Description:
This 130-nucleotide sequence from Peromyscus maniculatus belongs to the Rfam family "Small nucleolar RNA SNORA15". The match comes from Rfam's covariance-model search (123 bits). Rfam 15.1 lists 974 matches to the family in 624 species. Lineage of the source: Eukaryota > Euarchontoglires > Cricetidae > Neotominae > Peromyscus maniculatus. A reference for the family is Huttenhofer et al. (2001), "RNomics: an experimental approach that identifies 201 candidates for novel, small, non-messenger RNAs in mouse", EMBO J. Its family is annotated with RNA processing and nucleolus in the Gene Ontology. By type it is an H/ACA-box small nucleolar RNA.
RNA sequence: GCAUGGCUGAAUACUGUGUUCUUUAGUCAGUAAUUUACACAGCCAGACACCAUGCAAAAGUAAAGUCUUCCUUUGCAAUGAUCGGUAUGCUGUGUUUUAUGGUAUAUCAUCUUGAAAAGUGAGUACAAAG
Numbered sequence: 001g002c003a004u005g006g007c008u009g010a011a012u013a014c015u016g017u018g019u020u021c022u023u024u025a026g027u028c029a030g031u032a033a034u035u036u037a038c039a040c041a042g043c044c045a046g047a048c049a050c051c052a053u054g055c056a057a058a059a060g061u062a063a064a065g066u067c068u069u070c071c072u073u074u075g076c077a078a079u080g081a082u083c084g085g086u087a088u089g090c091u092g093u094g095u096u097u098u099a100u101g102g103u104a105u106a107u108c109a110u111c112u113u114g115a116a117a118a119g120u121g122a123g124u125a126c127a128a129a130g
Base pairs, nucleotide, nucleotide: 001055002054003053004052005051006050014042015041016040017039018038019037068123069122070121071119072118073117074116076114077113084108085107086106087105088104089103090102091101092100
Dot-bracket structure: ((((((.......((((((.................)))))).......))))))............(((((((.((......(((((((((.......)))))))))....)).)))).))).......